[Rfam]
Rfam assigns this 267-nucleotide RNA from Butyricicoccus sp. TM10-16AC to the family "Bacterial large signal recognition particle RNA". The source organism's lineage runs through Bacteria, Bacillota, Clostridia, Eubacteriales and Butyricicoccus. The base pairs follow the family's consensus structure, which is taken from published work. On this family, see Rosenblad et al., RNA Biol 2009: "Kinship in the SRP RNA family". The signal recognition particle (SRP) is a universally conserved ribonucleoprotein involved in the co-translational targeting of proteins to membranes.
RNA sequence: CCGCACAAGUCGGGGCGUUAGCGGUGCCUUGAACCCGCAAUCCGCUUCAGCGGGGACUAUGCGGGUAACAAGGAGCACGCAUGCGGCGAGGCAGCCACUCACAGGGCGAUGAGGGACCGGUACUGCGCAACGGAGGACUGUGAACCAUGUCAGGCGGGGAACCGAGCAGCAUUAAGCAGAAACCAUCGUGUGCCGCAGAUCUGCCGAUUCUGAGCCCGAAAUGCGGAAAGGCAGCCGGGUGUGUGUAUUCGAAUUACCUGUGUGCGG
Numbered sequence: 001c002c003g004c005a006c007a008a009g010u011c012g013g014g015g016c017g018u019u020a021g022c023g024g025u026g027c028c029u030u031g032a033a034c035c036c037g038c039a040a041u042c043c044g045c046u047u048c049a050g051c052g053g054g055g056a057c058u059a060u061g062c063g064g065g066u067a068a069c070a071a072g073g074a075g076c077a078c079g080c081a082u083g084c085g086g087c088g089a090g091g092c093a094g095c096c097a098c099u100c101a102c103a104g105g106g107c108g109a110u111g112a113g114g115g116a117c118c119g120g121u122a123c124u125g126c127g128c129a130a131c132g133g134a135g136g137a138c139u140g141u142g143a144a145c146c147a148u149g150u151c152a153g154g155c156g157g158g159g160a161a162c163c164g165a166g167c168a169g170c171a172u173u174a175a176g177c178a179g180a181a182a183c184c185a186u187c188g189u190g191u192g193c194c195g196c197a198g199a200u201c202u203g204c205c206g207a208u209u210c211u212g213a214g215c216c217c218g219a220a221a222u223g224c225g226g227a228a229a230g231g232c233a234g235c236c237g238g239g240u241g242u243g244u245g246u247a248u249u250c251g252a253a254u255u256a257c258c259u260g261u262g263u264g265c266g267g
Stems, first nucleotide, its partner, number of pairs: 001267007008058004012030008034054005062260007072250003078243005084237004091232002095226002098223001105216003113211004118206004123198005128190002131188003135184001138179004147172004155164003